Rfam assigns this 170-nucleotide sequence from Ewingella americana to the family "Molybdenum/Tungsten riboswitch aptamer (Moco RNA motif)". The match comes from Rfam's covariance-model search (94 bits). Taxonomically the source falls in Ewingella americana (Bacteria, Pseudomonadota, Gammaproteobacteria, Enterobacterales).
RNA sequence: GAAAAAAUCAAACUCCUAGCCUUGCCGCCUAAGUUACUGGGCUGAAUUGGUGAUACUUCUCACUGGUUUAGUCGAUUAAUACGGCGUCCUGGCCGUGGCUCAGCCACCAGGGUGCAAGGUAGAAAUGCCUGCAUCUCCCGUAUUUGGAAAGGUGUUAAGGUGCUUCAACU
Numbered sequence: 001g002a003a004a005a006a007a008u009c010a011a012a013c014u015c016c017u018a019g020c021c022u023u024g025c026c027g028c029c030u031a032a033g034u035u036a037c038u039g040g041g042c043u044g045a046a047u048u049g050g051u052g053a054u055a056c057u058u059c060u061c062a063c064u065g066g067u068u069u070a071g072u073c074g075a076u077u078a079a080u081a082c083g084g085c086g087u088c089c090u091g092g093c094c095g096u097g098g099c100u101c102a103g104c105c106a107c108c109a110g111g112g113u114g115c116a117a118g119g120u121a122g123a124a125a126u127g128c129c130u131g132c133a134u135c136u137c138c139c140g141u142a143u144u145u146g147g148a149a150a151g152g153u154g155u156u157a158a159g160g161u162g163c164u165u166c167a168a169c170u
Stems, first nucleotide, its partner, number of pairs: 003164001006161001011156003015152002019093003024088001026086004033080004095107005110136006117130005137147002